RNA: epsC RNA
RNA sequence: UAGUAAUGUAUUCUUACCAUUAUAAAGGAGGAACUCGGUCAUCCUGUGGGUUUUAUGAACCUUAGAUGCUUUGUUGUCGAAAGGGUGAUGUGAGGGAGGGUUAGAUGCCCA
Numbered sequence: 001u002a003g004u005a006a007u008g009u010a011u012u013c014u015u016a017c018c019a020u021u022a023u024a025a026a027g028g029a030g031g032a033a034c035u036c037g038g039u040c041a042u043c044c045u046g047u048g049g050g051u052u053u054u055a056u057g058a059a060c061c062u063u064a065g066a067u068g069c070u071u072u073g074u075u076g077u078c079g080a081a082a083g084g085g086u087g088a089u090g091u092g093a094g095g096g097a098g099g100g101u102u103a104g105a106u107g108c109c110c111a
Stems, first nucleotide, its partner, number of pairs: 001019001003017002007033001009031001011029003034094004038089008048062005065078004098110004